Rfam assigns this 88-nucleotide RNA sequence from Viridibacillus arenosi to the family "BsrC".
Rfam describes the family as follows. The 301 nucleotide sequence from Kouji Nakamura has been trimmed to a highly conserved ~85 nucleotide long core to form this family.
It scores 64 bits against the family's covariance model.
For this family Rfam cites "Novel small RNA-encoding genes in the intergenic regions of Bacillus subtilis" (Saito et al., Gene, 2008).
Rfam 15.1 lists 572 matches to the family in 553 species.
The source organism's lineage runs through Bacteria, Bacilli, Caryophanales, Viridibacillus and Viridibacillus arenosi.

[Rfam]
RNA sequence: UCUAACCUAAGCAACGCAAACCCUACCUUCUUUUGCGUCCUUGUGACCCCAAAGUCACUCCAGUGUGAAUAAGUAUCUACAAAAACAU
Numbered sequence: 001u002c003u004a005a006c007c008u009a010a011g012c013a014a015c016g017c018a019a020a021c022c023c024u025a026c027c028u029u030c031u032u033u034u035g036c037g038u039c040c041u042u043g044u045g046a047c048c049c050c051a052a053a054g055u056c057a058c059u060c061c062a063g064u065g066u067g068a069a070u071a072a073g074u075a076u077c078u079a080c081a082a083a084a085a086c087a088u
Stems, first nucleotide, its partner, number of pairs: 036067002040063002043058005